[Rfam]
RNA: Small nucleolar RNA SNORA74
RNA sequence: CCCAGCUCUAAGUCAGCUGACCAGCCCUGAUGGCUGGCUCGGUGUUACAGAGCUGGCAGAGGAAGCCUCUGCAUGCGCUCUCAGCGGCGCCGCCUCUGUUUUAGAGGAAGCUGCUGCUGAGAUUCUGCAGAGCUCGGUCCAAAGAGAGUGGCCCGCCCCGGUCCGUCUGCAGGGCGGGCCUAGUAGAGGACCGUACAGC
Numbered sequence: 001c002c003c004a005g006c007u008c009u010a011a012g013u014c015a016g017c018u019g020a021c022c023a024g025c026c027c028u029g030a031u032g033g034c035u036g037g038c039u040c041g042g043u044g045u046u047a048c049a050g051a052g053c054u055g056g057c058a059g060a061g062g063a064a065g066c067c068u069c070u071g072c073a074u075g076c077g078c079u080c081u082c083a084g085c086g087g088c089g090c091c092g093c094c095u096c097u098g099u100u101u102u103a104g105a106g107g108a109a110g111c112u113g114c115u116g117c118u119g120a121g122a123u124u125c126u127g128c129a130g131a132g133c134u135c136g137g138u139c140c141a142a143a144g145a146g147a148g149u150g151g152c153c154c155g156c157c158c159c160g161g162u163c164c165g166u167c168u169g170c171a172g173g174g175c176g177g178g179c180c181u182a183g184u185a186g187a188g189g190a191c192c193g194u195a196c197a198g199c
Base pairs, nucleotide, nucleotide: 002056003055004054005053006052007051008050009049012048013047016043017042018041019040020039022036023035024034025033026032067132068131069130070129071128072127073126080121081120082119083118084117085116086115087114088113089112091110093107094106095105096104097103135193136192137191138190139189140188150180151179152178154176155175156174157173158172160170